A member of the RNA family "Metazoan signal recognition particle RNA" from Meloidogyne incognita, 260 nucleotides long. Rfam 15.1 lists 383,523 matches to the family in 1,221 species. The source organism's lineage runs through Eukaryota, Metazoa, Ecdysozoa, Tylenchina and Meloidogyne. Rfam links the family to the GO terms signal recognition particle, endoplasmic reticulum targeting and SRP-dependent cotranslational protein targeting to membrane, signal sequence recognition. The family's consensus secondary structure is taken from published work. For this family Rfam cites "Towards the structure of the mammalian signal recognition particle" (Wild et al., Curr Opin Struct Biol, 2002). It is annotated as a non-coding RNA gene.
RNA sequence: GCCGAGCGUCGUGGCGGGCGCUUGUAGUCCAGUUUCUAGGAGGCAAAAGCACCAAAUUGACGGGUGUGCACAGAGCGAGUGUCUAGAGCAAGGGCCAAGUCAACAAGGGGCGCAAACGGGAGCGUUUGUGUUCCUGGUUGUUUAAAGAGCGGGGCAACGGUUCAGGCCCGAAAGGGAGCAGACAAAACCCGCCGCUUGGUCACAGUGUUCAGACAGCACUUGCGAGCAUGCCAUCUAAACGUCGAUUGGAUUUGCUUUUU
Numbered sequence: 001g002c003c004g005a006g007c008g009u010c011g012u013g014g015c016g017g018g019c020g021c022u023u024g025u026a027g028u029c030c031a032g033u034u035u036c037u038a039g040g041a042g043g044c045a046a047a048a049g050c051a052c053c054a055a056a057u058u059g060a061c062g063g064g065u066g067u068g069c070a071c072a073g074a075g076c077g078a079g080u081g082u083c084u085a086g087a088g089c090a091a092g093g094g095c096c097a098a099g100u101c102a103a104c105a106a107g108g109g110g111c112g113c114a115a116a117c118g119g120g121a122g123c124g125u126u127u128g129u130g131u132u133c134c135u136g137g138u139u140g141u142u143u144a145a146a147g148a149g150c151g152g153g154g155c156a157a158c159g160g161u162u163c164a165g166g167c168c169c170g171a172a173a174g175g176g177a178g179c180a181g182a183c184a185a186a187a188c189c190c191g192c193c194g195c196u197u198g199g200u201c202a203c204a205g206u207g208u209u210c211a212g213a214c215a216g217c218a219c220u221u222g223c224g225a226g227c228a229u230g231c232c233a234u235c236u237a238a239a240c241g242u243c244g245a246u247u248g249g250a251u252u253u254g255c256u257u258u259u260u
Stems, first nucleotide, its partner, number of pairs: 001044003004023007028041003046258006052249003056246007063231001065230005071224001075223008083212002086210005092203001094200007101140004106135013141147002149192005160183003167176003
Dot-bracket structure: ((((((((((......)))))))....(((........)))))).(((((((((.((((((((.(((((.(...((((((((((.(((((.(.(((((((((((.(((((((((((((....))))))))))))).))))((...)).(((((......(((....(((....)))....)))....))))).)))))))..)..)))))))...))))))))).))))))........))))))))))...))))))..